A member of the RNA family "Glycine riboswitch aptamer" from Cupriavidus sp. HPC(L), 148 nucleotides long. Rfam links the family to the GO term glycine biosynthetic process. Taxonomically the source falls in Cupriavidus (Bacteria, Pseudomonadota, Burkholderiales, Burkholderiaceae).
[Rfam]
RNA sequence: AUGCCGAACUCUGGAGAGCGACACCCGCCAUUCAUCGAUUGAAUGAUGAGCGUGUCCACCGAAGGGGCGCACGGCGGGGCCGGCGGGUUCGAAGCGAACCGCAGAACCAGUCCGUAAUCUCUCAGGUAUCGAGGACAGAGGGGGUCAU
Numbered sequence: 001a002u003g004c005c006g007a008a009c010u011c012u013g014g015a016g017a018g019c020g021a022c023a024c025c026c027g028c029c030a031u032u033c034a035u036c037g038a039u040u041g042a043a044u045g046a047u048g049a050g051c052g053u054g055u056c057c058a059c060c061g062a063a064g065g066g067g068c069g070c071a072c073g074g075c076g077g078g079g080c081c082g083g084c085g086g087g088u089u090c091g092a093a094g095c096g097a098a099c100c101g102c103a104g105a106a107c108c109a110g111u112c113c114g115u116a117a118u119c120u121c122u123c124a125g126g127u128a129u130c131g132a133g134g135a136c137a138g139a140g141g142g143g144g145u146c147a148u
Stems, first nucleotide, its partner, number of pairs: 009140005020056004058127003061123002065121003071115004